A member of the RNA family "t44 RNA" from Halomonas alimentaria, 105 nucleotides long.
The organism belongs to Halomonas, within Bacteria.
About the family: This family consists of a number of bacterial RNA genes of between 135 and 170 bases in length.
RNA sequence: AACAUAACGCCUUGAAAACACACAUGCACCGGCACAUGGUCCCGGGUGCUGUCGCGUCUCUCACGAGUGCGGCGGUCGGAUCCAUGGGGUGCAUGGAGGCCUAAC
Numbered sequence: 001a002a003c004a005u006a007a008c009g010c011c012u013u014g015a016a017a018a019c020a021c022a023c024a025u026g027c028a029c030c031g032g033c034a035c036a037u038g039g040u041c042c043c044g045g046g047u048g049c050u051g052u053c054g055c056g057u058c059u060c061u062c063a064c065g066a067g068u069g070c071g072g073c074g075g076u077c078g079g080a081u082c083c084a085u086g087g088g089g090u091g092c093a094u095g096g097a098g099g100c101c102u103a104a105c
Stems, first nucleotide, its partner, number of pairs: 023095008035086005040080003048076009